[Rfam]
RNA sequence: GGGAUGUUGUUAUGCACUGGAUUUAUAGUGAGGUUUGGUGAUCAGCCAAACCUCUU
Numbered sequence: 001g002g003g004a005u006g007u008u009g010u011u012a013u014g015c016a017c018u019g020g021a022u023u024u025a026u027a028g029u030g031a032g033g034u035u036u037g038g039u040g041a042u043c044a045g046c047c048a049a050a051c052c053u054c055u056u
Base pairs, nucleotide, nucleotide: 002018003017005016006015007014030054031053032052033051034050035049036048037047038046039045